[Rfam]
RNA sequence: AGCAUUAUUACCGCCAUUAUCAGAUUGGCGGGCUAGCGAGCACCUUGCACCUAACCCGCCCUGGAGGCGGGUUUU
Numbered sequence: 001a002g003c004a005u006u007a008u009u010a011c012c013g014c015c016a017u018u019a020u021c022a023g024a025u026u027g028g029c030g031g032g033c034u035a036g037c038g039a040g041c042a043c044c045u046u047g048c049a050c051c052u053a054a055c056c057c058g059c060c061c062u063g064g065a066g067g068c069g070g071g072u073u074u075u
Stems, first nucleotide, its partner, number of pairs: 011031006053073008
RNA: Pseudomonas sRNA P9